This 88-nucleotide RNA from Paenibacillus sp. GP183 belongs to the Rfam family "c-di-GMP-I riboswitch aptamer". It scores 90 bits against the family's covariance model.
[Rfam]
RNA sequence: AAAAUGAAAAGGCAAACUUAUUGAAAAAUAAGGACGCAAAGCCUCAGGUCUAAAGCAGGAAUCCUGCCAAGACAGCUGGGCUGCCAAA
Numbered sequence: 001a002a003a004a005u006g007a008a009a010a011g012g013c014a015a016a017c018u019u020a021u022u023g024a025a026a027a028a029u030a031a032g033g034a035c036g037c038a039a040a041g042c043c044u045c046a047g048g049u050c051u052a053a054a055g056c057a058g059g060a061a062u063c064c065u066g067c068c069a070a071g072a073c074a075g076c077u078g079g080g081c082u083g084c085c086a087a088a
Stems, first nucleotide, its partner, number of pairs: 012037002017032006040082004045078003048073003055067004